The family of this 556-nucleotide part of an RNA from Muribaculaceae bacterium Isolate-002 is "Bacterial large subunit ribosomal RNA". It scores 2752 bits against the family's covariance model.
RNA sequence: AGAGAAGGGCACAUGAAGGAUGCCUUGGCUCUCGGAGGCGAAGAAGGACGUGAUAAGCUGCGAUAAGCCGCGUGUAGAGGCAAAUACUCAUUGAUACGCGGAUUUCCGAAUGGGGCAACCCACCGUUAGCGAUAACGGUACCUCACCGAGUGAGGGGCGAACCCGGGGAACUGAAACAUCUCAUUACCCGGAGGAGAAGAAAACAAAAGUGAUUGCGCAAGUAGUGGCGAGCGAACGCGCAGGAGCCCAAACCGAGGAUGUAGCAAUGCAUCACUCGGGGUUGUAGGACCGUCGGUGCGCCGACAGCGAAUGUUAGGGGAAGCUUCUGGAAAGGAGCGCCAUAGGAGGUGAAAGCCCUGUACCCGAAAACAUGAACUGCAGGCAAGACGGCACCUGAGUAAGCCGGGACACGAGAAAUCCUGGCCGAACCCGCGGGGACCAUCCCGUAAGGCUAAAUACUACCGAGAGACCGAUAGCGAACCAGUACCGUGAGGGAAAGGUGAAAAGAACCUCGAACAGAGGAGUGAAAAAGACCCUGAAAUCAUGUGCCUACAAG
Numbered sequence: 001a002g003a004g005a006a007g008g009g010c011a012c013a014u015g016a017a018g019g020a021u022g023c024c025u026u027g028g029c030u031c032u033c034g035g036a037g038g039c040g041a042a043g044a045a046g047g048a049c050g051u052g053a054u055a056a057g058c059u060g061c062g063a064u065a066a067g068c069c070g071c072g073u074g075u076a077g078a079g080g081c082a083a084a085u086a087c088u089c090a091u092u093g094a095u096a097c098g099c100g101g102a103u104u105u106c107c108g109a110a111u112g113g114g115g116c117a118a119c120c121c122a123c124c125g126u127u128a129g130c131g132a133u134a135a136c137g138g139u140a141c142c143u144c145a146c147c148g149a150g151u152g153a154g155g156g157g158c159g160a161a162c163c164c165g166g167g168g169a170a171c172u173g174a175a176a177c178a179u180c181u182c183a184u185u186a187c188c189c190g191g192a193g194g195a196g197a198a199g200a201a202a203a204c205a206a207a208a209g210u211g212a213u214u215g216c217g218c219a220a221g222u223a224g225u226g227g228c229g230a231g232c233g234a235a236c237g238c239g240c241a242g243g244a245g246c247c248c249a250a251a252c253c254g255a256g257g258a259u260g261u262a263g264c265a266a267u268g269c270a271u272c273a274c275u276c277g278g279g280g281u282u283g284u285a286g287g288a289c290c291g292u293c294g295g296u297g298c299g300c301c302g303a304c305a306g307c308g309a310a311u312g313u314u315a316g317g318g319g320a321a322g323c324u325u326c327u328g329g330a331a332a333g334g335a336g337c338g339c340c341a342u343a344g345g346a347g348g349u350g351a352a353a354g355c356c357c358u359g360u361a362c363c364c365g366a367a368a369a370c371a372u373g374a375a376c377u378g379c380a381g382g383c384a385a386g387a388c389g390g391c392a393c394c395u396g397a398g399u400a401a402g403c404c405g406g407g408a409c410a411c412g413a414g415a416a417a418u419c420c421u422g423g424c425c426g427a428a429c430c431c432g433c434g435g436g437g438a439c440c441a442u443c444c445c446g447u448a449a450g451g452c453u454a455a456a457u458a459c460u461a462c463c464g465a466g467a468g469a470c471c472g473a474u475a476g477c478g479a480a481c482c483a484g485u486a487c488c489g490u491g492a493g494g495g496a497a498a499g500g501u502g503a504a505a506a507g508a509a510c511c512u513c514g515a516a517c518a519g520a521g522g523a524g525u526g527a528a529a530a531a532g533a534c535c536c537u538g539a540a541a542u543c544a545u546g547u548g549c550c551u552a553c554a555a556g
Base pairs, nucleotide, nucleotide: 007551008550009549010548011547012546013545014544015543016542022536023500024499027471028470029468030467031466032465033464034463035462036460037459038158039157046107047106048105049062050061051060068101069100070099071098072097073096074095077089078088079087112121113120114119122139123138124137125136126135127134128133141155142154143153144152145151146150162193163191164190165189166188167187173180174179203210204209213456214241215240216239217238218237224232225231244453245452246451247450252278253277254276255275256274285395286394287393290389291388292387293386304378305377306376310372311371312370313369314368316364317363318362322337323336324335325334326333340344346358347357348356402424403423404422405421406420407419408418432447433446434445435444436443487494488493510522511521512520513519